[Rfam]
RNA sequence: CGUAGAUGCCCCUCUGACAACGGCCCGAUGAACCCUGAACAAGUCCAUCCUGCCUGAUCAAGGGGCAUCUACUCGUUCACGCCACGCUCCACCACCGGUGGAUCCAG
Numbered sequence: 001c002g003u004a005g006a007u008g009c010c011c012c013u014c015u016g017a018c019a020a021c022g023g024c025c026c027g028a029u030g031a032a033c034c035c036u037g038a039a040c041a042a043g044u045c046c047a048u049c050c051u052g053c054c055u056g057a058u059c060a061a062g063g064g065g066c067a068u069c070u071a072c073u074c075g076u077u078c079a080c081g082c083c084a085c086g087c088u089c090c091a092c093c094a095c096c097g098g099u100g101g102a103u104c105c106a107g
Base pairs, nucleotide, nucleotide: 002072003071004070005069006068007067008066009065010064011063012062013061015060016059017058022054023053024052027049028048029047030046032044033043092101093100094099
This 107-nucleotide RNA from Kineosphaera limosa belongs to the Rfam family "Actinobacteria sRNA Ms_IGR-7". On this family, see Li et al., RNA 2013: "Identification of small RNAs in Mycobacterium smegmatis using heterologous Hfq". The organism belongs to Kineosphaera limosa, within Bacteria. The family's RNA type in Rfam is small RNA. It scores 55 bits against the family's covariance model.